The family of this 107-nucleotide RNA from Vibrio azureus is "Qrr RNA". Rfam classes the family as a small RNA. The source organism's lineage runs through Bacteria, Pseudomonadati, Gammaproteobacteria, Vibrionaceae and Vibrio azureus. On this family, see Lenz et al., Cell 2004: "The Small RNA Chaperone Hfq and Multiple Small RNAs Control Quorum Sensing in Vibrio harveyi and Vibrio cholerae". Rfam 15.1 lists 148 matches to the family in 70 species. Gene Ontology term of the family: quorum sensing. Rfam's curators write: This family represents a set of small RNAs (the Qrr RNAs) that are thought to be involved in the regulation of quorum sensing in Vibrio species.
[Rfam]
RNA sequence: UGGUCCUUUUAAGCCAAAGGCCACCUAGCCAACUGACGUUGUUAGUGAAUGUUUAUUGUUCACAGUUAUAGAUGCCAAUUGCUUUUUUUGCAAUUGGCUUUUUUCUG
Number, nucleotide and partner (000 for none) at each position: 001u023002g022003g021004u020005c019006c000007u000008u000009u000010u000011a000012a000013g000014c000015c000016a000017a000018a000019g005020g004021c003022c002023a001024c000025c000026u000027a000028g000029c000030c000031a000032a000033c000034u000035g000036a000037c000038g000039u071040u070041g069042u068043u000044a000045g063046u062047g061048a060049a059050u058051g057052u000053u000054u000055a000056u000057u051058g050059u049060u048061c047062a046063c045064a000065g000066u000067u000068a042069u041070a040071g039072a000073u000074g000075c097076c096077a095078a094079u093080u092081g091082c090083u000084u000085u000086u000087u000088u000089u000090g082091c081092a080093a079094u078095u077096g076097g075098c000099u000100u000101u000102u000103u000104u000105c000106u000107g000